[Rfam]
RNA sequence: GUAUUUUCGGAUGCGGCAUCAUCAGGAUUCACAUACUUUAUUAAGGAGAGCUUAAAUUGAGUAGUAGUGGAAAGAGGACGAUUUCUCUCUCUUUUGCUCGAAAGGUUCCUUUCAGAUGGGAAUCUUGAUGAUGCUGCAUCAGCAAAUAU
Number, nucleotide and partner (000 for none) at each position: 001g000002u000003a000004u000005u000006u000007u000008c000009g000010g140011a139012u138013g137014c136015g135016g134017c133018a132019u131020c130021a129022u128023c127024a126025g125026g124027a123028u122029u121030c120031a000032c118033a117034u000035a000036c000037u000038u000039u000040a000041u000042u000043a000044a000045g000046g000047a000048g000049a000050g000051c000052u000053u000054a000055a000056a000057u000058u000059g000060a000061g000062u000063a000064g000065u000066a000067g000068u000069g000070g000071a000072a000073a000074g000075a000076g000077g000078a000079c000080g000081a000082u000083u000084u000085c000086u000087c000088u000089c000090u000091c000092u000093u000094u000095u000096g000097c000098u000099c000100g000101a000102a000103a000104g000105g000106u000107u000108c000109c000110u000111u000112u000113c000114a000115g000116a000117u033118g032119g000120g030121a029122a028123u027124c026125u025126u024127g023128a022129u021130g020131a019132u018133g017134c016135u015136g014137c013138a012139u011140c010141a000142g000143c000144a000145a000146a000147u000148a000149u000
RNA: mir-172 microRNA precursor family